[Rfam]
RNA sequence: CGUUCUCUGCUGUGAGCGACGGCGUGUGCAAACAUUCGCCUUGUCCCUUAAUGACGACCACGGGGGCGCGACGACGCCGGGUGUGCAAGUCCGCCUUGCAGCGGAAAGCCCGAUGGCCUCCCAGCGUUCCCACUUGAACCCCGGGUUCAAGGUCGUUUCGCACGCAUCGUCACCGCGGAGAAUGC
Number, nucleotide and partner (000 for none) at each position: 001c000002g183003u182004u181005c180006u179007c178008u177009g176010c175011u000012g173013u172014g171015a170016g000017c169018g168019a167020c000021g000022g000023c000024g000025u000026g000027u000028g000029c000030a000031a000032a000033c000034a000035u000036u000037c000038g153039c152040c151041u000042u149043g148044u000045c000046c145047c144048u000049u000050a000051a000052u000053g000054a000055c000056g000057a000058c000059c000060a000061c000062g131063g130064g129065g000066g127067c126068g125069c124070g000071a000072c000073g120074a119075c000076g117077c116078c115079g114080g000081g000082u000083g000084u000085g109086c108087a000088a000089g000090u105091c104092c103093g102094c101095c000096u000097u000098g000099c000100a000101g094102c093103g092104g091105a090106a000107a000108g086109c085110c000111c000112g000113a000114u079115g078116g077117c076118c000119u074120c073121c000122c000123a000124g069125c068126g067127u066128u000129c064130c063131c062132a000133c000134u000135u000136g000137a000138a000139c000140c000141c000142c000143g000144g047145g046146u000147u000148c043149a042150a000151g040152g039153u038154c000155g000156u000157u000158u000159c000160g000161c000162a000163c000164g000165c000166a000167u019168c018169g017170u015171c014172a013173c012174c000175g010176c009177g008178g007179a006180g005181a004182a003183u002184g000185c000
RNA: 6S / SsrS RNA
Organism: Xanthomonas boreopolis